[Rfam]
RNA sequence: AACAUCAUUUUAACUCGCUCACACUGGUCCUAACUUUUAACAUUCAGUGGGGAGAGACACUUCACGAGUCUCCUCAGGUUUUGCAGGGCCGGUAAGAAGCGUAGAGAGAAUUCAAGAGCGUUGCUGGGCGCCUGGCGUUGAUUUUCUUCGGAAAAGAUGAGACUCUGGGAAUCAGCUGUUUCUACAUAU
Numbered sequence: 001a002a003c004a005u006c007a008u009u010u011u012a013a014c015u016c017g018c019u020c021a022c023a024c025u026g027g028u029c030c031u032a033a034c035u036u037u038u039a040a041c042a043u044u045c046a047g048u049g050g051g052g053a054g055a056g057a058c059a060c061u062u063c064a065c066g067a068g069u070c071u072c073c074u075c076a077g078g079u080u081u082u083g084c085a086g087g088g089c090c091g092g093u094a095a096g097a098a099g100c101g102u103a104g105a106g107a108g109a110a111u112u113c114a115a116g117a118g119c120g121u122u123g124c125u126g127g128g129c130g131c132c133u134g135g136c137g138u139u140g141a142u143u144u145u146c147u148u149c150g151g152a153a154a155a156g157a158u159g160a161g162a163c164u165c166u167g168g169g170a171a172u173c174a175g176c177u178g179u180u181u182c183u184a185c186a187u188a189u
Stems, first nucleotide, its partner, number of pairs: 016101003023093009037047002040044001048076005054070002116182002118179003131169002135165001137163003142155005